Annotation:
This 86-nucleotide sequence from Falsibacillus pallidus belongs to the Rfam family "c-di-GMP-I riboswitch aptamer". The source organism's lineage runs through Bacteria, Bacillota, Caryophanales, Bacillaceae and Falsibacillus.
[Rfam]
RNA sequence: GUCGAAAAAUGGCAAAGUUGCUGAAAGGCAAUGACGCAAAACUAUAGGGGCUAACGCUGAAAGGGCUAUGCUCGCCAGUUACCGAA
Numbered sequence: 001g002u003c004g005a006a007a008a009a010u011g012g013c014a015a016a017g018u019u020g021c022u023g024a025a026a027g028g029c030a031a032u033g034a035c036g037c038a039a040a041a042c043u044a045u046a047g048g049g050g051c052u053a054a055c056g057c058u059g060a061a062a063g064g065g066c067u068a069u070g071c072u073c074g075c076c077a078g079u080u081a082c083c084g085a086a
Stems, first nucleotide, its partner, number of pairs: 012037002017032006040080004047076002049072003056066003